Rfam assigns this 47-nucleotide RNA sequence from a Pirellulaceae bacterium to the family "Acido-Lenti-1 RNA". It is annotated as a small RNA.
RNA sequence: CCGGGGGCUUACGCCGCCCGGCUAUUGGAUGUCGCCGCUGCGCGGCU
Numbered sequence: 001c002c003g004g005g006g007g008c009u010u011a012c013g014c015c016g017c018c019c020g021g022c023u024a025u026u027g028g029a030u031g032u033c034g035c036c037g038c039u040g041c042g043c044g045g046c047u
Stems, first nucleotide, its partner, number of pairs: 001021005006015003034046005
Dot-bracket structure: ((((((((....))).)))))............(((((...))))).

The organism belongs to Pirellulaceae, within Bacteria.